[Rfam]
RNA: mir-8364 microRNA precursor family
Organism: Pristionchus pacificus
RNA sequence: UCUCUAUUCCCCAUACUCUCUCAUCCAUCAGAGAGACGAGAUAGUGUGUGGAAUGGAGAGA
Number, nucleotide and partner (000 for none) at each position: 001u059002c058003u057004c056005u055006a054007u053008u000009c000010c050011c000012c048013a047014u046015a045016c044017u043018c000019u041020c040021u039022c038023a000024u000025c000026c000027a000028u000029c000030a000031g000032a000033g000034a000035g000036a000037c000038g022039a021040g020041a019042u000043a017044g016045u015046g014047u013048g012049u000050g010051g000052a000053a007054u006055g005056g004057a003058g002059a001060g000061a000